The family of this 252-nucleotide sequence from Smittium culicis is "ACEA small nucleolar RNA U3". Lineage of the source: Eukaryota > Kickxellomycota > Kickxellomycotina > Harpellales > Smittium. The family's RNA type in Rfam is C/D-box small nucleolar RNA. For this family Rfam cites "The uRNA database" (Zwieb, Nucleic Acids Res, 1997). From the family's description: Small nucleolar RNAs (snoRNAs) are involved in the processing and modification of rRNA in the nucleolus. There are two main classes of snoRNAs: the box C/D class, and the box H/ACA class.

[Rfam]
RNA sequence: UCGACUGUACUUACAAGGAUCUUGUAUACAGUUUAUUUCUUUGCCUUUGUUUCCGAACAAAGUCACCUAAAACAGGCUGGACGAUGAAUCAUACUGCACUGUCCGUAAAGGGAAGUGUGGGGCUCUAAUCUUGGUUAUAUCUAUUGAAAUUUAUUUCUCUUGGUAAUUAUGUCAGAUUUGGCCUCGUUGAUGAUCUUGCUAUGUCGGAAUUAUUUCUGACAAUGCGAGGACGGAUGCAGAUUCUGACAGUCU
Numbered sequence: 001u002c003g004a005c006u007g008u009a010c011u012u013a014c015a016a017g018g019a020u021c022u023u024g025u026a027u028a029c030a031g032u033u034u035a036u037u038u039c040u041u042u043g044c045c046u047u048u049g050u051u052u053c054c055g056a057a058c059a060a061a062g063u064c065a066c067c068u069a070a071a072a073c074a075g076g077c078u079g080g081a082c083g084a085u086g087a088a089u090c091a092u093a094c095u096g097c098a099c100u101g102u103c104c105g106u107a108a109a110g111g112g113a114a115g116u117g118u119g120g121g122g123c124u125c126u127a128a129u130c131u132u133g134g135u136u137a138u139a140u141c142u143a144u145u146g147a148a149a150u151u152u153a154u155u156u157c158u159c160u161u162g163g164u165a166a167u168u169a170u171g172u173c174a175g176a177u178u179u180g181g182c183c184u185c186g187u188u189g190a191u192g193a194u195c196u197u198g199c200u201a202u203g204u205c206g207g208a209a210u211u212a213u214u215u216c217u218g219a220c221a222a223u224g225c226g227a228g229g230a231c232g233g234a235u236g237c238a239g240a241u242u243c244u245g246a247c248a249g250u251c252u
Stems, first nucleotide, its partner, number of pairs: 003039001006035001009032003016027001018025001043064001045062007075251005094239005099233006109197004119185003123180001202221004207216001